[Rfam]
Drosophila melanogaster stable intronic sequence RNA 1: a 398-nucleotide sequence from Drosophila simulans. It is annotated as a non-coding RNA gene. The source organism's lineage runs through Eukaryota, Opisthokonta, Metazoa, Eumetazoa and Sophophora. On this family, see Pek et al., J Cell Biol 2015: "Stable intronic sequence RNAs have possible regulatory roles in Drosophila melanogaster".
RNA sequence: ACUUCUUUUUAUUUAUUUCUGUUUUUAAAACUACGAUUAAGAAUCAGCUGUAUGCGUGGUGUCUUGUGAUCAGCUCAUUAAGCCCACUUAGUUAUGCUACGCUGUAUUGGUGACUAAACUCGGGUGGUGGUUUGGGUAUUUGGGCAAUAAGAAAACUAGUUUCAGUCAAGGACAUUAACUUUGGCUACGUUGGUCCAACCGAAUACGGACAAUACUAAUGGAUUCAGAAGAGCUUUUGCAAGUCAGAGUUUGAAAUGAAGUUGUGUUACAAACAAUCGAAACAUUGAUGGAAUCGAUUCCGGAUUAUACAGCAAGCAUAUUAUUAUGCAAUCUCAUUUUCUUUAAAAUAUGAUCAAUGAAUAAAAAGAAACUGUUCACAUAAUGCAAGCGACUUAACC
Numbered sequence: 001a002c003u004u005c006u007u008u009u010u011a012u013u014u015a016u017u018u019c020u021g022u023u024u025u026u027a028a029a030a031c032u033a034c035g036a037u038u039a040a041g042a043a044u045c046a047g048c049u050g051u052a053u054g055c056g057u058g059g060u061g062u063c064u065u066g067u068g069a070u071c072a073g074c075u076c077a078u079u080a081a082g083c084c085c086a087c088u089u090a091g092u093u094a095u096g097c098u099a100c101g102c103u104g105u106a107u108u109g110g111u112g113a114c115u116a117a118a119c120u121c122g123g124g125u126g127g128u129g130g131u132u133u134g135g136g137u138a139u140u141u142g143g144g145c146a147a148u149a150a151g152a153a154a155a156c157u158a159g160u161u162u163c164a165g166u167c168a169a170g171g172a173c174a175u176u177a178a179c180u181u182u183g184g185c186u187a188c189g190u191u192g193g194u195c196c197a198a199c200c201g202a203a204u205a206c207g208g209a210c211a212a213u214a215c216u217a218a219u220g221g222a223u224u225c226a227g228a229a230g231a232g233c234u235u236u237u238g239c240a241a242g243u244c245a246g247a248g249u250u251u252g253a254a255a256u257g258a259a260g261u262u263g264u265g266u267u268a269c270a271a272a273c274a275a276u277c278g279a280a281a282c283a284u285u286g287a288u289g290g291a292a293u294c295g296a297u298u299c300c301g302g303a304u305u306a307u308a309c310a311g312c313a314a315g316c317a318u319a320u321u322a323u324u325a326u327g328c329a330a331u332c333u334c335a336u337u338u339u340c341u342u343u344a345a346a347a348u349a350u351g352a353u354c355a356a357u358g359a360a361u362a363a364a365a366a367g368a369a370a371c372u373g374u375u376c377a378c379a380u381a382a383u384g385c386a387a388g389c390g391a392c393u394u395a396a397c398c
Base pairs, nucleotide, nucleotide: 003369004368005367006366007365008364009363010362011361012360013359014358015357016356017355020035021034022033041224042223044222045221047219050210051209054102055101056100057099058098059097060096061095062094065091073083074082075081104206105205106204107203108202110200112195113194114193115192116191117190122163123162124161128158129157130156131155132154133153137149140147141146164186165185166184167183168182169181170180171179225257226256230251231250232249233248234247235246236245260353261352262351263350264349265348266347267346316327317326318325319324
The base pairs follow the family's consensus structure, which was predicted with RNAfold.